[Rfam]
RNA sequence: AUCCCCGCCUCGCCGAGUUCCCUGCAAAUCGCCGCUGGCGAGGCGCGGGAAUCGGGGGACCCGAGGGCGGCUUGCUCUUUCGCCGCCGGGGCGAAUCGCGGCAUCGCCGCGUAGCGCCAGCCCAUGGCGCGAGCCCGUCAGCUAACCCCGUAGGCGAGCUUCGGAUGGGCGA
Numbered sequence: 001a002u003c004c005c006c007g008c009c010u011c012g013c014c015g016a017g018u019u020c021c022c023u024g025c026a027a028a029u030c031g032c033c034g035c036u037g038g039c040g041a042g043g044c045g046c047g048g049g050a051a052u053c054g055g056g057g058g059a060c061c062c063g064a065g066g067g068c069g070g071c072u073u074g075c076u077c078u079u080u081c082g083c084c085g086c087c088g089g090g091g092c093g094a095a096u097c098g099c100g101g102c103a104u105c106g107c108c109g110c111g112u113a114g115c116g117c118c119a120g121c122c123c124a125u126g127g128c129g130c131g132a133g134c135c136c137g138u139c140a141g142c143u144a145a146c147c148c149c150g151u152a153g154g155c156g157a158g159c160u161u162c163g164g165a166u167g168g169g170c171g172a
Base pairs, nucleotide, nucleotide: 011156012155013154014153018051019050020049021048022047053150054149055148056147057146062088063087089136090135091134097111098110099109100108114130115129116128117127
Rfam assigns this 172-nucleotide sequence from a Solirubrobacterales bacterium to the family "c-di-AMP riboswitch aptamer (ydaO/yuaA leader)". Its family is annotated with cyclic-di-AMP binding and regulation of gene expression in the Gene Ontology. The source organism's lineage runs through Bacteria, Bacillati, Actinomycetota, Thermoleophilia and Solirubrobacterales. On this family, see Barrick et al., Proc Natl Acad Sci U S A 2004: "New RNA motifs suggest an expanded scope for riboswitches in bacterial genetic control". A search with the family's covariance model found it, with a score of 59 bits.